Notes
Shown here is an 86-nucleotide RNA from Sporomusa silvacetica, a member of the family "c-di-GMP-I riboswitch aptamer". The family's consensus secondary structure is taken from published work. GEMM was predicted in a large-scale screen for bacterial structured RNA regulatory elements. Gene Ontology term of the family: cyclic-di-GMP binding.
[Rfam]
RNA sequence: UUAAGGAAUUGGCAUACCCGCUGAAAGGCGGCGACGCAAAGCCGUGGGUCUACCGGCGUAAUGCCUAUGACUGCCUGGUUGCUCUU
Numbered sequence: 001u002u003a004a005g006g007a008a009u010u011g012g013c014a015u016a017c018c019c020g021c022u023g024a025a026a027g028g029c030g031g032c033g034a035c036g037c038a039a040a041g042c043c044g045u046g047g048g049u050c051u052a053c054c055g056g057c058g059u060a061a062u063g064c065c066u067a068u069g070a071c072u073g074c075c076u077g078g079u080u081g082c083u084c085u086u
Stems, first nucleotide, its partner, number of pairs: 012037002018031005040080004046075002048071003055065004